[Rfam]
RNA: mir-1420 microRNA precursor family
RNA sequence: CGCCCAGCUAUGUCUGUCUGACCCAGCUGUACUCUCUGGACAUAAAAAGCAGAAAGUGCGACUGGAUCGGAUCGGUAUGGUUGGGAU
Numbered sequence: 001c002g003c004c005c006a007g008c009u010a011u012g013u014c015u016g017u018c019u020g021a022c023c024c025a026g027c028u029g030u031a032c033u034c035u036c037u038g039g040a041c042a043u044a045a046a047a048a049g050c051a052g053a054a055a056g057u058g059c060g061a062c063u064g065g066a067u068c069g070g071a072u073c074g075g076u077a078u079g080g081u082u083g084g085g086a087u
Base pairs, nucleotide, nucleotide: 003085004084005083006082007081008080009079012076013075016072017071018070019069020068021067023065024064025063026062029059030058031057032056033055035053036052037051